This 39-nucleotide RNA belongs to the Rfam family "L31-Actinobacteria ribosomal protein leader".
The family's RNA type in Rfam is cis-regulatory leader.
It is one of the family's seed sequences.
RNA sequence: CGGGCUCCGGUUCACCUCGCAACGCGGGGACCCGGCGCC
Numbered sequence: 001c002g003g004g005c006u007c008c009g010g011u012u013c014a015c016c017u018c019g020c021a022a023c024g025c026g027g028g029g030a031c032c033c034g035g036c037g038c039c
Stems, first nucleotide, its partner, number of pairs: 003039003007035004015029006